[Rfam]
RNA sequence: CCCUUCUUGCUAAAGCACUCUGCUGAAGUCGCGAGCUCUAAGCCCUUGGCUGGGGUCCUGUGAUGAUGCUAGCUGAAGUACACUCGAGGAGGAGAGUAACCGCACGGCACCCUCCACGGGACGGGGACGGACCUCUUUCCGAAUGUCCGGUGUCUGCUGUCCCAGGGUGGCUGUGUCACAGCU
Numbered sequence: 001c002c003c004u005u006c007u008u009g010c011u012a013a014a015g016c017a018c019u020c021u022g023c024u025g026a027a028g029u030c031g032c033g034a035g036c037u038c039u040a041a042g043c044c045c046u047u048g049g050c051u052g053g054g055g056u057c058c059u060g061u062g063a064u065g066a067u068g069c070u071a072g073c074u075g076a077a078g079u080a081c082a083c084u085c086g087a088g089g090a091g092g093a094g095a096g097u098a099a100c101c102g103c104a105c106g107g108c109a110c111c112c113u114c115c116a117c118g119g120g121a122c123g124g125g126g127a128c129g130g131a132c133c134u135c136u137u138u139c140c141g142a143a144u145g146u147c148c149g150g151u152g153u154c155u156g157c158u159g160u161c162c163c164a165g166g167g168u169g170g171c172u173g174u175g176u177c178a179c180a181g182c183u
Stems, first nucleotide, its partner, number of pairs: 018078002022073004028067004035057001037055003041051004102176007109168001124153001126151001128149004
RNA: Small nucleolar RNA SNORA81